The record is a 90-nucleotide sequence from Pseudomonas sp. CFII64, which matches "ivy-DE RNA" in Rfam. Rfam classes the family as a cis-regulatory element. The sequence is in the family's curated seed alignment.
RNA sequence: UGACCAUGGGGCCGGGACGCUUUGAUUGUUCGGAUCGAAGUGACCUAGGAGUACAGGGAGUACUUCCGCAAGGGCCGGGUCAGGAAAACC
Numbered sequence: 001u002g003a004c005c006a007u008g009g010g011g012c013c014g015g016g017a018c019g020c021u022u023u024g025a026u027u028g029u030u031c032g033g034a035u036c037g038a039a040g041u042g043a044c045c046u047a048g049g050a051g052u053a054c055a056g057g058g059a060g061u062a063c064u065u066c067c068g069c070a071a072g073g074g075c076c077g078g079g080u081c082a083g084g085a086a087a088a089c090c
Base pairs, nucleotide, nucleotide: 001082002081003080004079005078010076011075012074013073014046015045016044018042020040021039022038023037024036025035026034027033048066049065050064051063052062053061054060